[Rfam]
The record is a 340-nucleotide sequence from Saccharomonospora glauca, which matches "Bacterial RNase P class A" in Rfam.
RNA sequence: GAGGAAAGUCCGGGCUCCACAGGGCAGGGUGGUUGCUAACGGCAACCCGGGGUGACCCGCGGGACAGUGCCACAGAAAACAGACCGCCCGGCCGACAGCGGCCGGGUAAGGGUGAAACGGUGGUGUAAGAGACCACCAGCGCCUCGGGUGACCGGGGCGGCUCGGUAAACCCCACCCGGAGCAAGGCCAAGAGGAAGCCCUCGGGCUUCUGCGCAGGCGUUCGAGGGCGGCCCGUCCGAUGCCCGCGGGUAGGCCGCUAGAGCCUGUCGGCGACGGCAGGCCCAGAUGGAUGGUCGCCCAUCGUCCGCCGCGAGGCGGGCGUGGAUAGAACCCGGCGUAG
Numbered sequence: 001g002a003g004g005a006a007a008g009u010c011c012g013g014g015c016u017c018c019a020c021a022g023g024g025c026a027g028g029g030u031g032g033u034u035g036c037u038a039a040c041g042g043c044a045a046c047c048c049g050g051g052g053u054g055a056c057c058c059g060c061g062g063g064a065c066a067g068u069g070c071c072a073c074a075g076a077a078a079a080c081a082g083a084c085c086g087c088c089c090g091g092c093c094g095a096c097a098g099c100g101g102c103c104g105g106g107u108a109a110g111g112g113u114g115a116a117a118c119g120g121u122g123g124u125g126u127a128a129g130a131g132a133c134c135a136c137c138a139g140c141g142c143c144u145c146g147g148g149u150g151a152c153c154g155g156g157g158c159g160g161c162u163c164g165g166u167a168a169a170c171c172c173c174a175c176c177c178g179g180a181g182c183a184a185g186g187c188c189a190a191g192a193g194g195a196a197g198c199c200c201u202c203g204g205g206c207u208u209c210u211g212c213g214c215a216g217g218c219g220u221u222c223g224a225g226g227g228c229g230g231c232c233c234g235u236c237c238g239a240u241g242c243c244c245g246c247g248g249g250u251a252g253g254c255c256g257c258u259a260g261a262g263c264c265u266g267u268c269g270g271c272g273a274c275g276g277c278a279g280g281c282c283c284a285g286a287u288g289g290a291u292g293g294u295c296g297c298c299c300a301u302c303g304u305c306c307g308c309c310g311c312g313a314g315g316c317g318g319g320c321g322u323g324g325a326u327a328g329a330a331c332c333c334g335g336c337g338u339a340g
Stems, first nucleotide, its partner, number of pairs: 001298001006338001008336001010335005015181004022233004027177005032046005047061001048059004062172002067170002069166003084111002086107009119137006139161001140159008185255004213246002216243003225237004262281008
Lineage of the source: Bacteria > Actinomycetota > Actinomycetes > Pseudonocardiales > Saccharomonospora.